Description:
This 100-nucleotide RNA from Natronorubrum daqingense belongs to the Rfam family "L4-Archaeoglobi ribosomal protein leades". The literature on the family includes a 2020 paper in BMC Microbiol by Eckert and Weinberg, "Discovery of 20 novel ribosomal leader candidates in bacteria and archaea". The source organism's lineage runs through Archaea, Methanobacteriati, Methanobacteriota, Halobacteria and Natronorubrum.
[Rfam]
RNA sequence: CUGAAGGGCGCGUCCGGGUCAAUUGCGGCUUGCAACACCCGAUCUCACUCAACGUGCCUCCAUCGAUGGAGGUCACAGAGGGGGAGCGCGUGACCGUCAG
Numbered sequence: 001c002u003g004a005a006g007g008g009c010g011c012g013u014c015c016g017g018g019u020c021a022a023u024u025g026c027g028g029c030u031u032g033c034a035a036c037a038c039c040c041g042a043u044c045u046c047a048c049u050c051a052a053c054g055u056g057c058c059u060c061c062a063u064c065g066a067u068g069g070a071g072g073u074c075a076c077a078g079a080g081g082g083g084g085a086g087c088g089c090g091u092g093a094c095c096g097u098c099a100g
Base pairs, nucleotide, nucleotide: 001100002099003098004097008091009090010089011088012087013086015041016040017039018038023035024034025033026032027031043085044084045083046082048080049079050078